[Rfam]
RNA sequence: UAUUAGGUUGGUGCAAAGGUAACUGUGGUUUUUGUCACUAAAAUUAAUGGUAAAAACCGCAAUUACUUUUGCACCAACCUAAUA
Numbered sequence: 001u002a003u004u005a006g007g008u009u010g011g012u013g014c015a016a017a018g019g020u021a022a023c024u025g026u027g028g029u030u031u032u033u034g035u036c037a038c039u040a041a042a043a044u045u046a047a048u049g050g051u052a053a054a055a056a057c058c059g060c061a062a063u064u065a066c067u068u069u070u071g072c073a074c075c076a077a078c079c080u081a082a083u084a
Stems, first nucleotide, its partner, number of pairs: 001084022024061014039046002

This 84-nucleotide RNA from Theropithecus gelada belongs to the Rfam family "mir-548 microRNA precursor family".
It scores 90 bits against the family's covariance model.
NCBI's taxonomy places the organism under Eukaryota, Craniata, Boreoeutheria, Cercopithecidae, Theropithecus.